Annotation
Bacterial RNase P class A: a 376-nucleotide sequence from Sphingomonas sabuli.
RNA sequence: CCAGAGGGCCGGGCGGCCGCGGCCCCGCGCAAGCGGGGGCGAGGAAAGUCCGGGCUCCACGGAAAAACGGUGCCGGGUAACGCCCGGCGGUCCGCGCGCAAGCGGGGAUCAGGGACAGUGCCACAGAAAGCAUACCGCCCGGUUUCGGCCGGGUAAGGUCGAAAGGGUGCGGCAAGAGCGCACCGCGUCGCUGGAGACAGGGACGGCACGGUAAACCCCACCGGGUGCAAGACCGAAUAGGGGCGGCGCAUGAGCUUUUCCGGCUCGCCGCCCGGGUUGGUCGCUUGACCCCGAGCGCAAGCGCGGGGCUAGACGAAUGGCCGCACAGGCGCCGCAAGGCGCUGGACAGAACCCGGCUUACAGGCCCUCUGGCAAA
Numbered sequence: 001c002c003a004g005a006g007g008g009c010c011g012g013g014c015g016g017c018c019g020c021g022g023c024c025c026c027g028c029g030c031a032a033g034c035g036g037g038g039g040c041g042a043g044g045a046a047a048g049u050c051c052g053g054g055c056u057c058c059a060c061g062g063a064a065a066a067a068c069g070g071u072g073c074c075g076g077g078u079a080a081c082g083c084c085c086g087g088c089g090g091u092c093c094g095c096g097c098g099c100a101a102g103c104g105g106g107g108a109u110c111a112g113g114g115a116c117a118g119u120g121c122c123a124c125a126g127a128a129a130g131c132a133u134a135c136c137g138c139c140c141g142g143u144u145u146c147g148g149c150c151g152g153g154u155a156a157g158g159u160c161g162a163a164a165g166g167g168u169g170c171g172g173c174a175a176g177a178g179c180g181c182a183c184c185g186c187g188u189c190g191c192u193g194g195a196g197a198c199a200g201g202g203a204c205g206g207c208a209c210g211g212u213a214a215a216c217c218c219c220a221c222c223g224g225g226u227g228c229a230a231g232a233c234c235g236a237a238u239a240g241g242g243g244c245g246g247c248g249c250a251u252g253a254g255c256u257u258u259u260c261c262g263g264c265u266c267g268c269c270g271c272c273c274g275g276g277u278u279g280g281u282c283g284c285u286u287g288a289c290c291c292c293g294a295g296c297g298c299a300a301g302c303g304c305g306g307g308g309c310u311a312g313a314c315g316a317a318u319g320g321c322c323g324c325a326c327a328g329g330c331g332c333c334g335c336a337a338g339g340c341g342c343u344g345g346a347c348a349g350a351a352c353c354c355g356g357c358u359u360a361c362a363g364g365c366c367c368u369c370u371g372g373c374a375a376a
Stems, first nucleotide, its partner, number of pairs: 001372010011361001013324006020041002023038006046359003050356005055227001057225002065259002068223005073087005088112001089110004113218002118216002120212003135158002137154007166184006185207001186205004191200003231282004241273006252266005289308005295302002

Lineage of the source: Bacteria > Pseudomonadati > Pseudomonadota > Sphingomonadaceae > Sphingomonas.